This 81-nucleotide RNA from Carlito syrichta belongs to the Rfam family "Small nucleolar RNA SNORD115".
The family's RNA type in Rfam is C/D-box small nucleolar RNA.
For this family Rfam cites "Identification of brain-specific and imprinted small nucleolar RNA genes exhibiting an unusual genomic organization" (Cavaille et al., Proc Natl Acad Sci U S A, 2000).
Pairs were carried over by alignment from the consensus structure, which was predicted with PFOLD.
RNA sequence: GGUUCCAUGAUGAUGUUUUUGCCUUCUCUCUGGAGAAGAGUUGUCUUAAAAGUCAUGCUCUAUAGAGUUACGCUGAGGACC
Numbered sequence: 001g002g003u004u005c006c007a008u009g010a011u012g013a014u015g016u017u018u019u020u021g022c023c024u025u026c027u028c029u030c031u032g033g034a035g036a037a038g039a040g041u042u043g044u045c046u047u048a049a050a051a052g053u054c055a056u057g058c059u060c061u062a063u064a065g066a067g068u069u070a071c072g073c074u075g076a077g078g079a080c081c
Base pairs, nucleotide, nucleotide: 001081002080003079004078005075008072009071